[Rfam]
Overview: Rfam assigns this 101-nucleotide RNA from Microcebus murinus to the family "Y RNA". The source organism's lineage runs through Eukaryota, Deuterostomia, Vertebrata, Primates and Microcebus. Pairs were carried over by alignment from the consensus structure, which is taken from published work.
RNA sequence: GGCUGGUCAGAGUAUGGUGCUAUUUACAACUAAUUGAUCACAGCCAGUUAUAGAUUCCUUUGUUCCUUCUCCAUGCCCACUGCUCACUUGACUAGCCUAAA
Numbered sequence: 001g002g003c004u005g006g007u008c009a010g011a012g013u014a015u016g017g018u019g020c021u022a023u024u025u026a027c028a029a030c031u032a033a034u035u036g037a038u039c040a041c042a043g044c045c046a047g048u049u050a051u052a053g054a055u056u057c058c059u060u061u062g063u064u065c066c067u068u069c070u071c072c073a074u075g076c077c078c079a080c081u082g083c084u085c086a087c088u089u090g091a092c093u094a095g096c097c098u099a100a101a
Stems, first nucleotide, its partner, number of pairs: 001097008010089002016081004028064003032060002